[Rfam]
RNA sequence: AUAUGAAAAGACCUUCUCGUUUAGUGAGAGGGUCUUUGUUUGGUUUUUAUGUUAGGGCUGGUGGGCGCUUUUUCAGCUAUAAAUGAUUUCAGGCCCCGUCUCGCGACGAGGCCCUUCAUGGGAGAGGAGAAACCGGACGAAGAGCUUAUGGGGAACGUAAGUCUUCUCCGCGG
Numbered sequence: 001a002u003a004u005g006a007a008a009a010g011a012c013c014u015u016c017u018c019g020u021u022u023a024g025u026g027a028g029a030g031g032g033u034c035u036u037u038g039u040u041u042g043g044u045u046u047u048u049a050u051g052u053u054a055g056g057g058c059u060g061g062u063g064g065g066c067g068c069u070u071u072u073u074c075a076g077c078u079a080u081a082a083a084u085g086a087u088u089u090c091a092g093g094c095c096c097c098g099u100c101u102c103g104c105g106a107c108g109a110g111g112c113c114c115u116u117c118a119u120g121g122g123a124g125a126g127g128a129g130a131a132a133c134c135g136g137a138c139g140a141a142g143a144g145c146u147u148a149u150g151g152g153g154a155a156c157g158u159a160a161g162u163c164u165u166c167u168c169c170g171c172g173g
Stems, first nucleotide, its partner, number of pairs: 012032009033122003037118001134170004139166004144162005
The record is a 173-nucleotide sequence from Paenibacillus cremeus, which matches "ylbH leader" in Rfam. On this family, see Barrick et al., Proc Natl Acad Sci U S A 2004: "New RNA motifs suggest an expanded scope for riboswitches in bacterial genetic control". Lineage of the source: Bacteria > Bacillati > Bacillota > Paenibacillaceae > Paenibacillus.